This 73-nucleotide RNA from Corvus brachyrhynchos belongs to the Rfam family "Small nucleolar RNA SNORD34".

RNA sequence: CGGUGUCGAUGAUGUCACUUUUACCUACAUUGUUUGACUCUCCCUGAGAAAAACCGCAAAUCCUGAGACACCU
Numbered sequence: 001c002g003g004u005g006u007c008g009a010u011g012a013u014g015u016c017a018c019u020u021u022u023a024c025c026u027a028c029a030u031u032g033u034u035u036g037a038c039u040c041u042c043c044c045u046g047a048g049a050a051a052a053a054c055c056g057c058a059a060a061u062c063c064u065g066a067g068a069c070a071c072c073u
Stems, first nucleotide, its partner, number of pairs: 002072001004070004
Clan: SNORD34 clan.
The family's consensus secondary structure was predicted with PFOLD.
Rfam's curators write: snoRNA U34 is found in intron 5 of the ribosomal protein L13a gene in humans.
Rfam classes the family as a C/D-box small nucleolar RNA.
Its family is annotated with RNA processing and nucleolus in the Gene Ontology.